About this RNA
The family of this 165-nucleotide part of an RNA from Emericellopsis atlantica is "Eukaryotic small subunit ribosomal RNA". The family is grouped with related families in Rfam's "SSU clan". It scores 1790 bits against the family's covariance model. The family's consensus secondary structure is taken from published work.
[Rfam]
RNA sequence: CCGCCCGUCGCUACUACCGAUUGAAUGGCUCAGUGAGGCGUCCGGACUGGCCCAGGGAGGUGGGCAACUACCACCCAGGGCCGGAAAGUUCUCCAAACUCGGUCAUUUAGAGGAAGUAAAAGUCGUAACAAGGUCUCCGUUGGUGAACCAGCGGAGGGAUCAUUA
Numbered sequence: 001c002c003g004c005c006c007g008u009c010g011c012u013a014c015u016a017c018c019g020a021u022u023g024a025a026u027g028g029c030u031c032a033g034u035g036a037g038g039c040g041u042c043c044g045g046a047c048u049g050g051c052c053c054a055g056g057g058a059g060g061u062g063g064g065c066a067a068c069u070a071c072c073a074c075c076c077a078g079g080g081c082c083g084g085a086a087a088g089u090u091c092u093c094c095a096a097a098c099u100c101g102g103u104c105a106u107u108u109a110g111a112g113g114a115a116g117u118a119a120a121a122g123u124c125g126u127a128a129c130a131a132g133g134u135c136u137c138c139g140u141u142g143g144u145g146a147a148c149c150a151g152c153g154g155a156g157g158g159a160u161c162a163u164u165a
Base pairs, nucleotide, nucleotide: 001132003129006125007124009122012118013117014116015115017113018112021109023108024107025106026105027104028103029102030101032099033098034097037094038093040091043088047084048083049082050081051080052079053078055076056075057074059072060071061070062069134157135156136155137154138153139152140151141150142149143148